Overview: The family of this 81-nucleotide RNA sequence from Epulopiscium sp. Nele67-Bin005 is "S10-Clostridia ribosomal protein leader". The family's consensus secondary structure is taken from published work.
[Rfam]
RNA sequence: UGGGAACGUAGAUUCAGGAGGUUGCUGGGAAACAGGUAGAUUUCUGAGGAGUGAAUGUCCAGUUCAAGAAACGGACGACAA
Numbered sequence: 001u002g003g004g005a006a007c008g009u010a011g012a013u014u015c016a017g018g019a020g021g022u023u024g025c026u027g028g029g030a031a032a033c034a035g036g037u038a039g040a041u042u043u044c045u046g047a048g049g050a051g052u053g054a055a056u057g058u059c060c061a062g063u064u065c066a067a068g069a070a071a072c073g074g075a076c077g078a079c080a081a
Base pairs, nucleotide, nucleotide: 014047015046016045018044019043020042021041025035026034027033056080057079058078059077062076063075064074065073
The source organism's lineage runs through Bacteria, Bacillati, Clostridia, Lachnospiraceae and Candidatus Epulonipiscium. It is annotated as a cis-regulatory leader.